Rfam assigns this 75-nucleotide RNA sequence from Alligator sinensis to the family "Mammalian CPEB3 ribozyme". A search with the family's covariance model found it, with a score of 45 bits. The organism belongs to Alligator, within Eukaryota.
RNA sequence: AGAGGUUACGUAUUUGAGGCCAUGGCAGAAGCUCUCACAGCCCUGUCAGAUACCAGUGUAUCUGCGAAUUCUGCU
Numbered sequence: 001a002g003a004g005g006u007u008a009c010g011u012a013u014u015u016g017a018g019g020c021c022a023u024g025g026c027a028g029a030a031g032c033u034c035u036c037a038c039a040g041c042c043c044u045g046u047c048a049g050a051u052a053c054c055a056g057u058g059u060a061u062c063u064g065c066g067a068a069u070u071c072u073g074c075u
Base pairs, nucleotide, nucleotide: 016043018042019041020040024075025074026073027072028071029070030069031038047064048063049062050061051060052059053058